[Rfam]
RNA sequence: GCUAGCUAUGUUUACAGCAUAACGUAUUGAUGUGGUGAAUCCCCCUGUGCGGAGGGGCGACCAGUCAGUUACAGAAACCUGUAAAUGCAGCGCGGGCCAUGCCGACUGGGGCAUGCUCACCGGGAGGCACCCGGCACCACACUGCCACUAAACAUAUUUAAGAUUCAUGUUGGGUUUACUGUUUACAGUUACCCUUCUAUGUUU
Numbered sequence: 001g002c003u004a005g006c007u008a009u010g011u012u013u014a015c016a017g018c019a020u021a022a023c024g025u026a027u028u029g030a031u032g033u034g035g036u037g038a039a040u041c042c043c044c045c046u047g048u049g050c051g052g053a054g055g056g057g058c059g060a061c062c063a064g065u066c067a068g069u070u071a072c073a074g075a076a077a078c079c080u081g082u083a084a085a086u087g088c089a090g091c092g093c094g095g096g097c098c099a100u101g102c103c104g105a106c107u108g109g110g111g112c113a114u115g116c117u118c119a120c121c122g123g124g125a126g127g128c129a130c131c132c133g134g135c136a137c138c139a140c141a142c143u144g145c146c147a148c149u150a151a152a153c154a155u156a157u158u159u160a161a162g163a164u165u166c167a168u169g170u171u172g173g174g175u176u177u178a179c180u181g182u183u184u185a186c187a188g189u190u191a192c193c194c195u196u197c198u199a200u201g202u203u204u
Stems, first nucleotide, its partner, number of pairs: 010153003029142001031141007042057005065083001087093002094118004100113002120134005163204001166201001172195003176191001178189003
Source information:
The record is a 204-nucleotide RNA sequence from Oxavirus ST13OXA48phi124, which matches "Gammaproteobacterial sRNA STnc100" in Rfam. The family's RNA type in Rfam is small RNA. It scores 82 bits against the family's covariance model.